[Rfam]
RNA sequence: GGCCAGGUCCUGUGCAAGGGCAGGCGCGUGAACUCCGCCAGGGCCGGAAGGCAGCAACGGUAACGACGUCCUCCUUGUGCCGCAGGGUGCCUGGCCACU
Numbered sequence: 001g002g003c004c005a006g007g008u009c010c011u012g013u014g015c016a017a018g019g020g021c022a023g024g025c026g027c028g029u030g031a032a033c034u035c036c037g038c039c040a041g042g043g044c045c046g047g048a049a050g051g052c053a054g055c056a057a058c059g060g061u062a063a064c065g066a067c068g069u070c071c072u073c074c075u076u077g078u079g080c081c082g083c084a085g086g087g088u089g090c091c092u093g094g095c096c097a098c099u
Stems, first nucleotide, its partner, number of pairs: 004093005009086006015077001017076004027065003035060003043052003